[Rfam]
RNA sequence: CCGGUUCCGGUUCACGCCCGUCCCGACCACACCGUCGGGGGCACCUCACCCGGGCGACCCGGCGACC
Numbered sequence: 001c002c003g004g005u006u007c008c009g010g011u012u013c014a015c016g017c018c019c020g021u022c023c024c025g026a027c028c029a030c031a032c033c034g035u036c037g038g039g040g041g042c043a044c045c046u047c048a049c050c051c052g053g054g055c056g057a058c059c060c061g062g063c064g065a066c067c
Stems, first nucleotide, its partner, number of pairs: 003067003007062004015056006

Rfam assigns this 67-nucleotide sequence from Micromonospora rosaria to the family "L31-Actinobacteria ribosomal protein leader". On this family, see Eckert and Weinberg, BMC Microbiol 2020: "Discovery of 20 novel ribosomal leader candidates in bacteria and archaea".